RNA: Nuclear RNase P
RNA sequence: AACAGCUGCAUUCCUACUAGUACAACCUGCUUGCAUACGAUCUUAAUGGUCCCUAAGCAGGUGGGAAAUUCGGUGGAACACAGCGAGACAACAAUCGCCAGGGGCUUCGGCCCUGAUUCUCGUGAGAGAAGCCGCUGGAAAGCGGUUGUGGGCGCUGUCAUCAGAAAUACACAUGUUGGCCGGCGCUAUCGCCGCACCAAUGUGAUGGGAAAGGCAGCGGAUGUCUCGUUUGACUUUGCCUUAGGGUAAAGGUCUGUUGAGUGCAAUGGUAGGAGGCCGCUUUAUGGUGGCCAACCCGAUACCGAUUAUUGUUGGUGUU
Numbered sequence: 001a002a003c004a005g006c007u008g009c010a011u012u013c014c015u016a017c018u019a020g021u022a023c024a025a026c027c028u029g030c031u032u033g034c035a036u037a038c039g040a041u042c043u044u045a046a047u048g049g050u051c052c053c054u055a056a057g058c059a060g061g062u063g064g065g066a067a068a069u070u071c072g073g074u075g076g077a078a079c080a081c082a083g084c085g086a087g088a089c090a091a092c093a094a095u096c097g098c099c100a101g102g103g104g105c106u107u108c109g110g111c112c113c114u115g116a117u118u119c120u121c122g123u124g125a126g127a128g129a130a131g132c133c134g135c136u137g138g139a140a141a142g143c144g145g146u147u148g149u150g151g152g153c154g155c156u157g158u159c160a161u162c163a164g165a166a167a168u169a170c171a172c173a174u175g176u177u178g179g180c181c182g183g184c185g186c187u188a189u190c191g192c193c194g195c196a197c198c199a200a201u202g203u204g205a206u207g208g209g210a211a212a213g214g215c216a217g218c219g220g221a222u223g224u225c226u227c228g229u230u231u232g233a234c235u236u237u238g239c240c241u242u243a244g245g246g247u248a249a250a251g252g253u254c255u256g257u258u259g260a261g262u263g264c265a266a267u268g269g270u271a272g273g274a275g276g277c278c279g280c281u282u283u284a285u286g287g288u289g290g291c292c293a294a295c296c297c298g299a300u301a302c303c304g305a306u307u308a309u310u311g312u313u314g315g316u317g318u319u
Base pairs, nucleotide, nucleotide: 001319002318003317004316008312009311010310014273015272018269025062026061027060028059029058039051040050041049042048071304072303073302074301075300086226087225088224089223117130118129119128120127121126131146132145133144134143135142136141153219154218155217156216157215158214159213172204173203174202275292276291277290278289279288280287281286